Overview:
Rfam assigns this 557-nucleotide part of an RNA from Aminipila butyrica to the family "Bacterial small subunit ribosomal RNA". The base pairs follow the family's consensus structure, which is taken from published work. Taxonomically the source falls in Aminipila (Bacteria, Bacillota, Clostridia, Peptostreptococcales).
RNA sequence: UUUACAAAGAGUUUGAUCCUGGCUCAGGAUGAACGCUGGCGGCGUGCCUAACACAUGCAAGUCGAGCGAGAAAUUUACAAACAAAUCUUCGGAAGAGUGCGUAAAUGGAAAGCGGCGGACGGGUGAGUAACGCGUAGGCAACCUGCCUCAUGCAGAGGGAUAGCCUCGGGAAACCGGGAUUAAAACCUCAUGAUGCAAGAGAAACACAUGUUUUUCUUGUCAAAGAUUUAUCGGCAUGAGAUGGGCCUGCGUCUGAUUAGCUAGUUGGUAGGGUAACGGCCUACCAAGGCAACGAUCAGUAGCCGACCUGAGAGGGUAAUCGGCCACAUUGGAACUGAGACACGGUCCAAACUCCUACGGGAGGCAGCAGUGGGGAAUAUUGCACAAUGGGCGAAAGCCUGAUGCAGCAACGCCGCGUGAGCGAAGAAGGCCUUUGGGUCGUAAAGCUCUGUCCUUGGGGAAGAAACAAAUGACGGUACCCAAGGAGGAAGCCCCGGCUAACUACGUGCCAGCAGCCGCGGUAAUACGUAGGGGGCGAGCGUUAUCCGGAAUUAUUG
Numbered sequence: 001u002u003u004a005c006a007a008a009g010a011g012u013u014u015g016a017u018c019c020u021g022g023c024u025c026a027g028g029a030u031g032a033a034c035g036c037u038g039g040c041g042g043c044g045u046g047c048c049u050a051a052c053a054c055a056u057g058c059a060a061g062u063c064g065a066g067c068g069a070g071a072a073a074u075u076u077a078c079a080a081a082c083a084a085a086u087c088u089u090c091g092g093a094a095g096a097g098u099g100c101g102u103a104a105a106u107g108g109a110a111a112g113c114g115g116c117g118g119a120c121g122g123g124u125g126a127g128u129a130a131c132g133c134g135u136a137g138g139c140a141a142c143c144u145g146c147c148u149c150a151u152g153c154a155g156a157g158g159g160a161u162a163g164c165c166u167c168g169g170g171a172a173a174c175c176g177g178g179a180u181u182a183a184a185a186c187c188u189c190a191u192g193a194u195g196c197a198a199g200a201g202a203a204a205c206a207c208a209u210g211u212u213u214u215u216c217u218u219g220u221c222a223a224a225g226a227u228u229u230a231u232c233g234g235c236a237u238g239a240g241a242u243g244g245g246c247c248u249g250c251g252u253c254u255g256a257u258u259a260g261c262u263a264g265u266u267g268g269u270a271g272g273g274u275a276a277c278g279g280c281c282u283a284c285c286a287a288g289g290c291a292a293c294g295a296u297c298a299g300u301a302g303c304c305g306a307c308c309u310g311a312g313a314g315g316g317u318a319a320u321c322g323g324c325c326a327c328a329u330u331g332g333a334a335c336u337g338a339g340a341c342a343c344g345g346u347c348c349a350a351a352c353u354c355c356u357a358c359g360g361g362a363g364g365c366a367g368c369a370g371u372g373g374g375g376a377a378u379a380u381u382g383c384a385c386a387a388u389g390g391g392c393g394a395a396a397g398c399c400u401g402a403u404g405c406a407g408c409a410a411c412g413c414c415g416c417g418u419g420a421g422c423g424a425a426g427a428a429g430g431c432c433u434u435u436g437g438g439u440c441g442u443a444a445a446g447c448u449c450u451g452u453c454c455u456u457g458g459g460g461a462a463g464a465a466a467c468a469a470a471u472g473a474c475g476g477u478a479c480c481c482a483a484g485g486a487g488g489a490a491g492c493c494c495c496g497g498c499u500a501a502c503u504a505c506g507u508g509c510c511a512g513c514a515g516c517c518g519c520g521g522u523a524a525u526a527c528g529u530a531g532g533g534g535g536c537g538a539g540c541g542u543u544a545u546c547c548g549g550a551a552u553u554a555u556u557g
Base pairs, nucleotide, nucleotide: 009025010024011023012022013021027547028546029545030544032543033542034541035540036539037538039416040415041414042413043412044411045409046408047374052372053371054370056369057368058367061116062115063114066113067112073106074105075104076103077102078101123327124326125325132252133251134250135249136248137247138246139245142244143243147240148239149238150237151236152235153234155189156188157187158186163180165178166177167176168175169174195220196219197218198217199216200215201214203212204211205210225232226231253299254298255297260290261289262288265287266286267285268284269283270282271281272280302324303323304322305321306317307316308315309314329350330349331348332347333346352363353362354361355360380406382405383404384403388401389400390399391398392397419449420448421447422446429440430439431438432437453488454484455483456482457481458480459479463474491536492535493534494533495532502531503530504529505528506527512519513518